Overview: Shown here is a 300-nucleotide RNA from Caenorhabditis remanei, a member of the family "Metazoan signal recognition particle RNA". The literature on the family includes a 2002 paper in Nucleic Acids Res by Regalia et al., "Prediction of signal recognition particle RNA genes". Rfam classes the family as a non-coding RNA gene. The signal recognition particle (SRP) is a universally conserved ribonucleoprotein. It is involved in the co-translational targeting of proteins to membranes.
RNA sequence: ACCGGGCGUCGUGGCGGGCGCCUGUGAGCCAGCUUCUUGGCGGUAGACGAGUGUGGAUGGAGUGAAAGGAGGAGUCCUGUGUAUAUCGUUGUCACCGACGACCGAGCGUCCGUUGCCAAGCGCUGCGUUCACUAGGGGUCAUCCUUCGGAAGAGGGGCGGUCCCGGGUGCAUAAGGAGCGGUGGAUGGUUCAGGACCGAAAGGUAGCAGACAAAAGCUGCCGCGCGGUGCAGUGGCCGGAUAGCGCUUGCGAGGUGACACGUGUACACAGCCUCCUUGAUACCUUCAGACCACUUGUCAU
Numbered sequence: 001a002c003c004g005g006g007c008g009u010c011g012u013g014g015c016g017g018g019c020g021c022c023u024g025u026g027a028g029c030c031a032g033c034u035u036c037u038u039g040g041c042g043g044u045a046g047a048c049g050a051g052u053g054u055g056g057a058u059g060g061a062g063u064g065a066a067a068g069g070a071g072g073a074g075u076c077c078u079g080u081g082u083a084u085a086u087c088g089u090u091g092u093c094a095c096c097g098a099c100g101a102c103c104g105a106g107c108g109u110c111c112g113u114u115g116c117c118a119a120g121c122g123c124u125g126c127g128u129u130c131a132c133u134a135g136g137g138g139u140c141a142u143c144c145u146u147c148g149g150a151a152g153a154g155g156g157g158c159g160g161u162c163c164c165g166g167g168u169g170c171a172u173a174a175g176g177a178g179c180g181g182u183g184g185a186u187g188g189u190u191c192a193g194g195a196c197c198g199a200a201a202g203g204u205a206g207c208a209g210a211c212a213a214a215a216g217c218u219g220c221c222g223c224g225c226g227g228u229g230c231a232g233u234g235g236c237c238g239g240a241u242a243g244c245g246c247u248u249g250c251g252a253g254g255u256g257a258c259a260c261g262u263g264u265a266c267a268c269a270g271c272c273u274c275c276u277u278g279a280u281a282c283c284u285u286c287a288g289a290c291c292a293c294u295u296g297u298c299a300u
Base pairs, nucleotide, nucleotide: 001044002043003042004023005022006021007020008019009018010017028041029040030039046298047297048296049295050294051293052292053291058287059286060285061284062283066277067276068275069274070273071272072271077270078269079268080267081266082265083264084263087261088260089259092257093256094255095254096253103249104248105247106246107245108244109243110239111238115236116235117234118233120230121229122228123227124226125225126224127223128222130169131168132167133166135164136163137162138161139160140159142157143156144155145154146153147152170176178220179219180218181217182216188211189210190209195204196203197202